[Rfam]
RNA sequence: CACCUUACUCUAAUUGGUGAGUAAGAAGGACCAUUGGGGUCAACUGG
Numbered sequence: 001c002a003c004c005u006u007a008c009u010c011u012a013a014u015u016g017g018u019g020a021g022u023a024a025g026a027a028g029g030a031c032c033a034u035u036g037g038g039g040u041c042a043a044c045u046g047g
Stems, first nucleotide, its partner, number of pairs: 004025007029041004
This 47-nucleotide RNA sequence belongs to the Rfam family "gut-2 RNA".